[Rfam]
RNA sequence: AGCUUUCUGAGUCCGCGCAAUGUUUUCGUCGGAUAUCAACCCUUUAGGGUUGAUCAGACUUCCAAGAUAAGUGAAGCU
Numbered sequence: 001a002g003c004u005u006u007c008u009g010a011g012u013c014c015g016c017g018c019a020a021u022g023u024u025u026u027c028g029u030c031g032g033a034u035a036u037c038a039a040c041c042c043u044u045u046a047g048g049g050u051u052g053a054u055c056a057g058a059c060u061u062c063c064a065a066g067a068u069a070a071g072u073g074a075a076g077c078u
Stems, first nucleotide, its partner, number of pairs: 002077005008071001011068003017062001020061001022059001024058003028054003